RNA sequence: CCAAGUCCCGUCGCACACCCCCCCAGCGCCGGGACUUUCCCCGCCGGGCUUCGGCGCCUUCCCCCGGGCGUCGGAGCCCGGCCCUUUU
Number, nucleotide and partner (000 for none) at each position: 001c000002c000003a000004a000005g035006u034007c033008c032009c031010g030011u000012c028013g027014c026015a000016c000017a000018c000019c000020c000021c000022c000023c000024c000025a000026g014027c013028g012029c000030c010031g009032g008033g007034a006035c005036u000037u000038u000039c000040c000041c000042c000043g082044c081045c080046g079047g078048g077049c076050u075051u000052c073053g072054g071055c070056g069057c068058c067059u066060u000061c000062c000063c000064c000065c000066g059067g058068g057069c056070g055071u054072c053073g052074g000075a050076g049077c048078c047079c046080g045081g044082c043083c000084c000085u000086u000087u000088u000
RNA: Streptomyces RNA 3202